Notes
The record is a 105-nucleotide RNA from Anaerotignum lactatifermentans, which matches "TPP riboswitch aptamer (THI element)" in Rfam. The base pairs follow the family's consensus structure, which is taken from published work. Vitamin B(1) in its active form thiamin pyrophosphate (TPP) is an essential coenzyme that is synthesised by coupling of pyrimidine and thiazole moieties in bacteria. It scores 66 bits against the family's covariance model. Gene Ontology term of the family: thiamine pyrophosphate binding.

RNA sequence: CCAGAAUGCAAAGGGAGCUUCUAAGGGAGGCUGAGAGGAAGGAUACUUCGACCUUUACACCUGAUUUGGAUAAUGCCAACGGAGGGAAUGCAGGGUGCACAACUC
Numbered sequence: 001c002c003a004g005a006a007u008g009c010a011a012a013g014g015g016a017g018c019u020u021c022u023a024a025g026g027g028a029g030g031c032u033g034a035g036a037g038g039a040a041g042g043a044u045a046c047u048u049c050g051a052c053c054u055u056u057a058c059a060c061c062u063g064a065u066u067u068g069g070a071u072a073a074u075g076c077c078a079a080c081g082g083a084g085g086g087a088a089u090g091c092a093g094g095g096u097g098c099a100c101a102a103c104u105c
Stems, first nucleotide, its partner, number of pairs: 007092004011055004017031005038049004060085003066079004